Description: Plant signal recognition particle RNA: a 306-nucleotide RNA from Dendrobium catenatum. The match comes from Rfam's covariance-model search (157 bits). Taxonomically the source falls in Dendrobium (Eukaryota, Viridiplantae, Euphyllophyta, Dendrobiinae).
[Rfam]
RNA sequence: GCUUAGCUCAGCAACGCAAGCUUGUAACCCUUAUGGGGGAAUUCGGGUGCCCUGAAUGAUUCAUCUGAACCAUUGGCUGGUUUGUAUUAAGCCGAAUGUAGGCCCGCCCGAUCCAAGAUGGGUAGUUGAUUUCAACAGGUUUAGGCGUAGGCCAAAUUUAGUUGUGUUCUAAAUUAGAGGGGAAAGCGUGAGGCUGGUUUAACAGAGCAGCGAUUACCUCUAGCUCUCAUCGGUGGAUGGAAAACUGGCUGGUGGUCCGGGCAAACCAAGUAGCCGUUUGGCCUGGUGAACCAAACAGGCAUUCUU
Number, nucleotide and partner (000 for none) at each position: 001g000002c039003u038004u000005a022006g021007c020008u019009c000010a000011g000012c000013a000014a000015c000016g000017c000018a000019a008020g007021c006022u005023u000024g000025u000026a000027a000028c037029c036030c035031u000032u000033a000034u000035g030036g029037g028038g003039g002040a000041a000042u000043u000044c000045g304046g303047g302048u301049g300050c299051c000052c298053u297054g296055a000056a000057u293058g292059a000060u290061u289062c288063a287064u286065c285066u000067g283068a000069a000070c281071c280072a279073u000074u276075g275076g274077c273078u272079g267080g266081u265082u264083u263084g262085u261086a000087u259088u000089a000090a000091g257092c000093c254094g253095a000096a000097u000098g000099u252100a000101g250102g249103c248104c247105c000106g245107c000108c240109c239110g000111a238112u237113c236114c235115a234116a000117g231118a230119u229120g228121g227122g226123u000124a225125g224126u223127u000128g168129a167130u166131u000132u000133c164134a163135a162136c161137a000138g159139g158140u000141u156142u155143a000144g153145g152146c151147g000148u000149a000150g000151g146152c145153c144154a000155a142156a141157u000158u139159u138160a000161g136162u135163u134164g133165u000166g130167u129168u128169c000170u000171a000172a000173a000174u000175u222176a221177g220178a219179g218180g217181g000182g000183a000184a000185a214186g000187c212188g211189u210190g000191a000192g000193g000194c205195u204196g203197g000198u000199u000200u000201a000202a000203c196204a195205g194206a000207g000208c000209a000210g189211c188212g187213a000214u185215u000216a000217c180218c179219u178220c177221u176222a175223g126224c125225u124226c122227u121228c120229a119230u118231c117232g000233g000234u115235g114236g113237a112238u111239g109240g108241a000242a000243a000244a000245c106246u000247g104248g103249c102250u101251g000252g099253u094254g093255g000256u000257c091258c000259g087260g000261g085262c084263a083264a082265a081266c080267c079268a000269a000270g000271u000272a078273g077274c076275c075276g074277u000278u000279u072280g071281g070282c000283c067284u000285g065286g064287u063288g062289a061290a060291c000292c058293a057294a000295a000296c054297a053298g052299g050300c049301a048302u047303u046304c045305u000306u000